[Rfam]
RNA sequence: UUCACUUUGGGUCCCUCAACUUUAUAUCGAGUUUAAUAUCGGAUAUGUGGGCCAUGUUCGCAUGGCCUGCUUCUGUAUCCAAAUAUUUUUUUAUGGGGAAGGGCCCAUUAGUGGUUCUGCCACUAGGGCCCUUGCGCGUUGCCGAGGCGUUGCACUGCUGCCCGGGCCGGCGCACCCCAA
Numbered sequence: 001u002u003c004a005c006u007u008u009g010g011g012u013c014c015c016u017c018a019a020c021u022u023u024a025u026a027u028c029g030a031g032u033u034u035a036a037u038a039u040c041g042g043a044u045a046u047g048u049g050g051g052c053c054a055u056g057u058u059c060g061c062a063u064g065g066c067c068u069g070c071u072u073c074u075g076u077a078u079c080c081a082a083a084u085a086u087u088u089u090u091u092u093a094u095g096g097g098g099a100a101g102g103g104c105c106c107a108u109u110a111g112u113g114g115u116u117c118u119g120c121c122a123c124u125a126g127g128g129c130c131c132u133u134g135c136g137c138g139u140u141g142c143c144g145a146g147g148c149g150u151u152g153c154a155c156u157g158c159u160g161c162c163c164g165g166g167c168c169g170g171c172g173c174a175c176c177c178c179a180a
Base pairs, nucleotide, nucleotide: 002011003010025045026044027043028042031040047070048069049068050067051066052065053064054063055062056061099133100132101131102130103129104128105127106126111123112122113121114120115119136173137172138171139170140169141168143165146162147161148160
RNA: U2 spliceosomal RNA
Organism: Oryza sativa